This 131-nucleotide RNA sequence from Otolemur garnettii belongs to the Rfam family "Small nucleolar RNA SNORA51". It is annotated as an H/ACA-box small nucleolar RNA. The base pairs follow the family's consensus structure, which was predicted with PFOLD. Gene Ontology terms of the family: nucleolus and RNA processing. It scores 113 bits against the family's covariance model. Taxonomically the source falls in Otolemur (Eukaryota, Vertebrata, Dipnotetrapodomorpha, Mammalia).
RNA sequence: UACCUCCUGGUGCUUACCACGGGCUAUGUUCUUACACUGACGGUAUAGAAAGAGGCAGCAGAGUAAAACUACCUAUGUACACCCCAGCCCAGGCCCCAUGUCUGGUCUGUAUUGUGAAUGGGGGAACAUGG
Numbered sequence: 001u002a003c004c005u006c007c008u009g010g011u012g013c014u015u016a017c018c019a020c021g022g023g024c025u026a027u028g029u030u031c032u033u034a035c036a037c038u039g040a041c042g043g044u045a046u047a048g049a050a051a052g053a054g055g056c057a058g059c060a061g062a063g064u065a066a067a068a069c070u071a072c073c074u075a076u077g078u079a080c081a082c083c084c085c086a087g088c089c090c091a092g093g094c095c096c097c098a099u100g101u102c103u104g105g106u107c108u109g110u111a112u113u114g115u116g117a118a119u120g121g122g123g124g125a126a127c128a129u130g131g
Base pairs, nucleotide, nucleotide: 003058006055007054008053020043022041027036028035029034072123073121074120075119076118085109086108087107089105090104091103092102093101094100